RNA sequence: ACGUAAAUACAAACAAUACCUCAUAUAAUCUCAGUAAUAUGGUCUGAGAGUCUCUACGGAGUAACCGUAAAUUACUCUACUAUGAACGGUGCUUCUAUGAAA
Dot-bracket structure: ....................(((((...((((((.........))))))........(((((((.......)))))))..))))).................
This 102-nucleotide sequence from Oceanobacillus profundus belongs to the Rfam family "Purine riboswitch aptamer". The match comes from Rfam's covariance-model search (82 bits). Riboswitches are metabolite binding domains within certain messenger RNAs that serve as precision sensors for their corresponding targets. Allosteric rearrangement of mRNA structure is mediated by ligand binding, and this results in modulation of gene expression.